[Rfam]
RNA sequence: UUCAGGAUGUGCAUCGUGGUUGAUGUAGUUAAAAUUCUCUCAUCACCGGGUGCACAUUCGGUCA
Numbered sequence: 001u002u003c004a005g006g007a008u009g010u011g012c013a014u015c016g017u018g019g020u021u022g023a024u025g026u027a028g029u030u031a032a033a034a035u036u037c038u039c040u041c042a043u044c045a046c047c048g049g050g051u052g053c054a055c056a057u058u059c060g061g062u063c064a
Stems, first nucleotide, its partner, number of pairs: 003061001005059011017048003021045002024042002027040002